[Rfam]
RNA sequence: UUUUCGAAGAGGUAAACCCCGGGUAACCGGGGGGCACAAAGCUGCGGGUCCCGCCUGAAACAGCGGGACAGCCGGGUUGGCGAA
Numbered sequence: 001u002u003u004u005c006g007a008a009g010a011g012g013u014a015a016a017c018c019c020c021g022g023g024u025a026a027c028c029g030g031g032g033g034g035c036a037c038a039a040a041g042c043u044g045c046g047g048g049u050c051c052c053g054c055c056u057g058a059a060a061c062a063g064c065g066g067g068a069c070a071g072c073c074g075g076g077u078u079g080g081c082g083a084a
Stems, first nucleotide, its partner, number of pairs: 012037002017032006040078004045074003048069007
The family of this 84-nucleotide sequence from Geobacter sulfurreducens is "c-di-GMP-I riboswitch aptamer".
The organism belongs to Geobacter sulfurreducens, within Bacteria.
Rfam's curators write: GEMM was predicted in a large-scale screen for bacterial structured RNA regulatory elements.
Pairs were carried over by alignment from the consensus structure, which is taken from published work.